Shown here is a 114-nucleotide RNA from Caenorhabditis elegans, a member of the family "Potassium channel RNA editing signal".
The family's RNA type in Rfam is cis-regulatory element.
It scores 82 bits against the family's covariance model.
Taxonomically the source falls in Caenorhabditis (Eukaryota, Eumetazoa, Bilateria, Rhabditoidea).
RNA sequence: CUUGGAUACGGAGACAUGGUUCCAUCAACAAUAAUGGGUAAAAUAGUUGGAGGAGUAUGCUCACUGUCUGGAGUGUUGGUUAUUGCUCUUCCAGUUCCAGUUAUUGUCAGCAAU
Numbered sequence: 001c002u003u004g005g006a007u008a009c010g011g012a013g014a015c016a017u018g019g020u021u022c023c024a025u026c027a028a029c030a031a032u033a034a035u036g037g038g039u040a041a042a043a044u045a046g047u048u049g050g051a052g053g054a055g056u057a058u059g060c061u062c063a064c065u066g067u068c069u070g071g072a073g074u075g076u077u078g079g080u081u082a083u084u085g086c087u088c089u090u091c092c093a094g095u096u097c098c099a100g101u102u103a104u105u106g107u108c109a110g111c112a113a114u
Base pairs, nucleotide, nucleotide: 002113004111008107009106010105011104013102014101015100018097019096021094037077038076039075040074050062051061